This 176-nucleotide sequence from Oryza rufipogon belongs to the Rfam family "MIR807 microRNA precursor family". Gene Ontology terms of the family: miRNA-mediated post-transcriptional gene silencing and RISC complex. NCBI's taxonomy places the organism under Eukaryota, Embryophyta, Spermatophyta, Magnoliopsida, Oryza. The base pairs follow the family's consensus structure, which was predicted with WAR. A reference for the family is Luo et al. (2006), "Rice embryogenic calli express a unique set of microRNAs, suggesting regulatory roles of microRNAs in plant post-embryogenic development", FEBS Lett.

RNA sequence: AACCACACUACCGAUGAAUGUAUUCACCCAUAAGAUAUCGUGGUUGUUCCAUCAAGGAUGAGGACGUGGCAUCCUAUUAAUUUUAUGCGAUGGCUGGUAAUAGGAUGCCAUGUCCUCAUCCUAGGUGAAACAGUCACGUCAUCUCGCGGGUGAAUCCAUUCAUUCAUAGUGUGGUU
Numbered sequence: 001a002a003c004c005a006c007a008c009u010a011c012c013g014a015u016g017a018a019u020g021u022a023u024u025c026a027c028c029c030a031u032a033a034g035a036u037a038u039c040g041u042g043g044u045u046g047u048u049c050c051a052u053c054a055a056g057g058a059u060g061a062g063g064a065c066g067u068g069g070c071a072u073c074c075u076a077u078u079a080a081u082u083u084u085a086u087g088c089g090a091u092g093g094c095u096g097g098u099a100a101u102a103g104g105a106u107g108c109c110a111u112g113u114c115c116u117c118a119u120c121c122u123a124g125g126u127g128a129a130a131c132a133g134u135c136a137c138g139u140c141a142u143c144u145c146g147c148g149g150g151u152g153a154a155u156c157c158a159u160u161c162a163u164u165c166a167u168a169g170u171g172u173g174g175u176u
Base pairs, nucleotide, nucleotide: 001176002175003174004173005172006171007170009168010167013164014163015162017160018159019158022155023154024153025152026151027150028149031146033144035142036141039138041136042135043134044133045132046131047130048129051126052125055122057120058119063114064113065112069108070107071106072105073104074103075102076101077100078099079098